[Rfam]
RNA sequence: UGGACAAAUUAUUGUAUUCAACUUUAUUCACGACGUAAAAUAGGGGAUUACAUUAUUUUUAAAUGAAAAGUGAAUCAAUUAACAUAAUAUACUUCU
Numbered sequence: 001u002g003g004a005c006a007a008a009u010u011a012u013u014g015u016a017u018u019c020a021a022c023u024u025u026a027u028u029c030a031c032g033a034c035g036u037a038a039a040a041u042a043g044g045g046g047a048u049u050a051c052a053u054u055a056u057u058u059u060u061a062a063a064u065g066a067a068a069a070g071u072g073a074a075u076c077a078a079u080u081a082a083c084a085u086a087a088u089a090u091a092c093u094u095c096u
Base pairs, nucleotide, nucleotide: 002095003094004093010089011088012087013086014085015084017082018081020080021079023077026075027074028073029072030071031070034065035064036063037059038058039057040056041055042054043053

The record is a 96-nucleotide sequence from Nicotiana sylvestris, which matches "MIR6152 microRNA precursor family" in Rfam. The source organism's lineage runs through Eukaryota, Viridiplantae, Spermatophyta, Mesangiospermae and Nicotiana.